[Rfam]
RNA: RAGATH-18 RNA
RNA sequence: CCUGUGGAGAGUUACAGCAAACGUGAGUAGCGAAGGCGAAAACGGACUCGCUGAAGCAGGAA
Dot-bracket structure: (((((...(((((........(((.....((....))....))))))))......)))))..